Vault RNA: a 96-nucleotide RNA sequence from Propithecus coquereli.
A search with the family's covariance model found it, with a score of 47 bits.
Pairs were carried over by alignment from the consensus structure, which is taken from published work.
Taxonomically the source falls in Propithecus (Eukaryota, Opisthokonta, Metazoa, Teleostomi).
This family of RNAs are found as part of the enigmatic vault ribonucleoprotein complex. The complex consists of a major vault protein (MVP), two minor vault proteins (VPARP and TEP1), and several small untranslated RNA molecules. It has been suggested that the vault complex is involved in drug resistance.
[Rfam]
RNA sequence: GGAUCGGCAUUAGCUCAAGCUUCCUCACAUUGGACUUUCCAUCCAUCUAAUCCCUGCGCUGGGGUUUGAGACCCAUGGGUGCUUUCUGACCCUUUA
Numbered sequence: 001g002g003a004u005c006g007g008c009a010u011u012a013g014c015u016c017a018a019g020c021u022u023c024c025u026c027a028c029a030u031u032g033g034a035c036u037u038u039c040c041a042u043c044c045a046u047c048u049a050a051u052c053c054c055u056g057c058g059c060u061g062g063g064g065u066u067u068g069a070g071a072c073c074c075a076u077g078g079g080u081g082c083u084u085u086c087u088g089a090c091c092c093u094u095u096a
Stems, first nucleotide, its partner, number of pairs: 002091001004089004013080004018076001019073001024070004
Dot-bracket structure: .(.((((.....((((.((....((((.......................................))))..)..))))).....)))).).....